RNA sequence: GGGGGCGCCCUGGUUUCGACGGGGAUAGUGAAGCCCUGGUUGCAGGCCGAGGUGCCGCGAGGCCUCGUAAAACACGCGGCAACUGGUUAACUGCCAACGACUACGAUUACGCCCUGGCUGCUUAAAUAGACAGCCAGCGUCCCCUCGGUCGACGCCUGAUACGCUGAACCGGGAUGCCAAACCCCCAUCAGGCUGGUGCAAACCCUCGUCCGUUGGGGUGCGCGCGAGACAAUAGACGGACUGGCCGGAGGCGGCCCGGCCGGAAGGCCUGCCCGAGGCGAGAUUGUUUUUCGGUCUAAGCCUGUAGACGCUAGGAGUGGAGCAUUCUCGGACGGGGGUUCGAUUCCCCCCGCCUCCACCA
Numbered sequence: 001g002g003g004g005g006c007g008c009c010c011u012g013g014u015u016u017c018g019a020c021g022g023g024g025a026u027a028g029u030g031a032a033g034c035c036c037u038g039g040u041u042g043c044a045g046g047c048c049g050a051g052g053u054g055c056c057g058c059g060a061g062g063c064c065u066c067g068u069a070a071a072a073c074a075c076g077c078g079g080c081a082a083c084u085g086g087u088u089a090a091c092u093g094c095c096a097a098c099g100a101c102u103a104c105g106a107u108u109a110c111g112c113c114c115u116g117g118c119u120g121c122u123u124a125a126a127u128a129g130a131c132a133g134c135c136a137g138c139g140u141c142c143c144c145u146c147g148g149u150c151g152a153c154g155c156c157u158g159a160u161a162c163g164c165u166g167a168a169c170c171g172g173g174a175u176g177c178c179a180a181a182c183c184c185c186c187a188u189c190a191g192g193c194u195g196g197u198g199c200a201a202a203c204c205c206u207c208g209u210c211c212g213u214u215g216g217g218g219u220g221c222g223c224g225c226g227a228g229a230c231a232a233u234a235g236a237c238g239g240a241c242u243g244g245c246c247g248g249a250g251g252c253g254g255c256c257c258g259g260c261c262g263g264a265a266g267g268c269c270u271g272c273c274c275g276a277g278g279c280g281a282g283a284u285u286g287u288u289u290u291u292c293g294g295u296c297u298a299a300g301c302c303u304g305u306a307g308a309c310g311c312u313a314g315g316a317g318u319g320g321a322g323c324a325u326u327c328u329c330g331g332a333c334g335g336g337g338g339u340u341c342g343a344u345u346c347c348c349c350c351c352g353c354c355u356c357c358a359c360c361a
Stems, first nucleotide, its partner, number of pairs: 001357007020330007029321001033318002035315006043304005048067005053081007114137007138176006145167004150163002154193007196225004202219003208242001211239001244279003250273004254268003258296004263292003334350005
RNA: transfer-messenger RNA
Organism: Solidesulfovibrio carbinoliphilus